[Rfam]
Source information: A member of the RNA family "Metazoan signal recognition particle RNA" from Merluccius polli, 299 nucleotides long. It scores 249 bits against the family's covariance model. It is annotated as a non-coding RNA gene. Rfam 15.1 lists 383,523 matches to the family in 1,221 species. The family's consensus secondary structure is taken from published work. Rfam describes the family as follows. The signal recognition particle (SRP) is a universally conserved ribonucleoprotein. It is involved in the co-translational targeting of proteins to membranes. The eukaryotic SRP consists of a 300-nucleotide 7S RNA and six proteins: SRPs 72, 68, 54, 19, 14, and 9. Archaeal SRP consists of a 7S RNA and homologues of the eukaryotic SRP19 and SRP54 proteins.
RNA sequence: GCUGGGCACGGUGGCGUGUGCCUCUAAUCCAAGUCCCUGGGAGGCUGAGGUUGGUGGUUCGAUUGAGCUGAGGAGCUCUGUGCUGUAGUGGGCUAUGUUGAACAGCUGUCCAUGCUAAGUUCGGUAUCGAUAUGGUGGUUCUGGGGGAACCUUGGACCACCAGGUCGUCUAAGGAGGGGUGCACUGGCCCAGGUCGGAAACGGAGCAGGUCAAAGCCCCCGUUCUGCACAGUAGUGGGAUCACAGCGGUGAAUAGACAUUACAGUGCAGCCUCAGUGAAACACUGAUACCCAAUCUCUU
Numbered sequence: 001g002c003u004g005g006g007c008a009c010g011g012u013g014g015c016g017u018g019u020g021c022c023u024c025u026a027a028u029c030c031a032a033g034u035c036c037c038u039g040g041g042a043g044g045c046u047g048a049g050g051u052u053g054g055u056g057g058u059u060c061g062a063u064u065g066a067g068c069u070g071a072g073g074a075g076c077u078c079u080g081u082g083c084u085g086u087a088g089u090g091g092g093c094u095a096u097g098u099u100g101a102a103c104a105g106c107u108g109u110c111c112a113u114g115c116u117a118a119g120u121u122c123g124g125u126a127u128c129g130a131u132a133u134g135g136u137g138g139u140u141c142u143g144g145g146g147g148a149a150c151c152u153u154g155g156a157c158c159a160c161c162a163g164g165u166c167g168u169c170u171a172a173g174g175a176g177g178g179g180u181g182c183a184c185u186g187g188c189c190c191a192g193g194u195c196g197g198a199a200a201c202g203g204a205g206c207a208g209g210u211c212a213a214a215g216c217c218c219c220c221g222u223u224c225u226g227c228a229c230a231g232u233a234g235u236g237g238g239a240u241c242a243c244a245g246c247g248g249u250g251a252a253u254a255g256a257c258a259u260u261a262c263a264g265u266g267c268a269g270c271c272u273c274a275g276u277g278a279a280a281c282a283c284u285g286a287u288a289c290c291c292a293a294u295c296u297c298u299u
Stems, first nucleotide, its partner, number of pairs: 001045003004023007028042003047297008059286003063282001067276007078269013093255004098250001102249002105246005110238002113236005119229002122226003126222002128167004133162009143152003168174002176219005185212005194203003